[Rfam]
RNA: Archaeal large subunit ribosomal RNA, nucleotides 539 to 635
Organism: Haloferax mediterranei
RNA sequence: GAUAUAGCAUACAAGGUCGUCUGACGAAUGACCUAGAAGCGAUUCUACAGUAAGACUCAGACGAAGCCGAUGUUAUAUCGUACGUUUUGAAAAACGA
Number, nucleotide and partner (000 for none) at each position: 001g079002a078003u077004a076005u075006a074007g073008c072009a071010u070011a000012c000013a000014a000015g068016g067017u000018c000019g062020u061021c060022u059023g058024a057025c000026g000027a000028a000029u053030g000031a000032c000033c000034u047035a046036g045037a044038a043039g000040c000041g000042a000043u038044u037045c036046u035047a034048c000049a000050g000051u000052a000053a029054g000055a000056c000057u024058c023059a022060g021061a020062c019063g000064a000065a000066g000067c016068c015069g000070a010071u009072g008073u007074u006075a005076u004077a003078u002079c001080g000081u000082a000083c096084g095085u094086u000087u000088u000089g000090a000091a000092a000093a000094a085095c084096g083097a000